[Rfam]
Nucleotides: 088
Base pairs, nucleotide, nucleotide: 012075013074015072016071017070018069023064024063025062026061027060029059030058031057032056033055
Number, partner (000 for none) and nucleotide at each position: 001000g002000c003000g004000c005000a006000u007000c008000a009000a010000c011000a012075c013074c014000u015072u016071g017070g018069c019000u020000c021000u022000a023064g024063a025062c026061u027060g028000c029059u030058u031057a032056c033055u034000g035000c036000u037000a038000a039000c040000a041000c042000c043000g044000c045000u046000c047000u048000g049000a050000a051000g052000u053000a054000c055033a056032g057031u058030a059029a060027c061026a062025g063024u064023c065000u066000a067000c068000a069018g070017u071016c072015a073000u074013g075012g076000c077000u078000a079000c080000u081000g082000a083000c084000g085000c086000c087000u088000g